Source information: Rfam assigns this 85-nucleotide RNA from Chrysemys picta to the family "mir-142 microRNA precursor family". The family has 37 seed sequences and 1,555 matches in Rfam 15.1. Its family is annotated with RISC complex and miRNA-mediated post-transcriptional gene silencing in the Gene Ontology. The base pairs follow the family's consensus structure, which was predicted with RNAalifold.
[Rfam]
RNA sequence: CAGUACACUCAUCCAUAAAGUAGGAAACACUACACGGGACGCGGCGGUUUAGUAGUGCUUUCUACUUUAUGGAGGAGUGCACUGU
Numbered sequence: 001c002a003g004u005a006c007a008c009u010c011a012u013c014c015a016u017a018a019a020g021u022a023g024g025a026a027a028c029a030c031u032a033c034a035c036g037g038g039a040c041g042c043g044g045c046g047g048u049u050u051a052g053u054a055g056u057g058c059u060u061u062c063u064a065c066u067u068u069a070u071g072g073a074g075g076a077g078u079g080c081a082c083u084g085u
Base pairs, nucleotide, nucleotide: 014071015070016069017068018067019066020065021064022063023062026059028057029056030055031054032053033052
Dot-bracket structure: .............((((((((((..(.((((((..................)))))).)..))))))))))..............